[Rfam]
The record is a 61-nucleotide RNA sequence from Furfurilactobacillus rossiae, which matches "Nitrogen stress-induced RNA 1" in Rfam. The family's RNA type in Rfam is small RNA. NCBI's taxonomy places the organism under Bacteria, Bacillota, Bacilli, Lactobacillales, Furfurilactobacillus rossiae.

RNA sequence: AGUUAAAUGUAACAUGUUCGUCAAAACCCCGAAGAGCUGGCACUCUUCGGGGUUUUUUUUU
Numbered sequence: 001a002g003u004u005a006a007a008u009g010u011a012a013c014a015u016g017u018u019c020g021u022c023a024a025a026a027c028c029c030c031g032a033a034g035a036g037c038u039g040g041c042a043c044u045c046u047u048c049g050g051g052g053u054u055u056u057u058u059u060u061u
Base pairs, nucleotide, nucleotide: 002013003012004011026053027052028051029050030049031048032047033046034045035044036043